RNA sequence: CUUCACACUGCCCAGCCACAACGGCCAGUCCUCCGAGCGGUGUUGGCCGUAGGUCGCCAGCAGCGCCUGCGCCUC
Numbered sequence: 001c002u003u004c005a006c007a008c009u010g011c012c013c014a015g016c017c018a019c020a021a022c023g024g025c026c027a028g029u030c031c032u033c034c035g036a037g038c039g040g041u042g043u044u045g046g047c048c049g050u051a052g053g054u055c056g057c058c059a060g061c062a063g064c065g066c067c068u069g070c071g072c073c074u075c
Base pairs, nucleotide, nucleotide: 015025016024017023031071033069038065039064043060044059045058047056049054
RNA: ASpks TB sRNA